[Rfam]
RNA sequence: AAGACUUGGCAGGGGCGUCUUUAUCCCAAAGACUGAGAAGUACCCUCAUAACCUGAUCCCGAUCAUGCGGGCGGAGGGAGCUUCCAAUGAUUUUAC
Number, nucleotide and partner (000 for none) at each position: 001a000002a000003g000004a000005c000006u000007u000008g082009g081010c080011a046012g045013g044014g043015g000016c040017g033018u032019c031020u030021u029022u000023a000024u000025c000026c000027c000028a000029a021030a020031g019032a018033c017034u000035g000036a000037g000038a000039a000040g016041u000042a000043c014044c013045c012046u011047c000048a000049u000050a000051a000052c077053c076054u075055g000056a000057u000058c071059c070060c069061g068062a000063u000064c000065a000066u000067g000068c061069g060070g059071g058072c000073g000074g000075a054076g053077g052078g000079a000080g010081c009082u008083u000084c000085c000086a000087a000088u000089g000090a000091u000092u000093u000094u000095a000096c000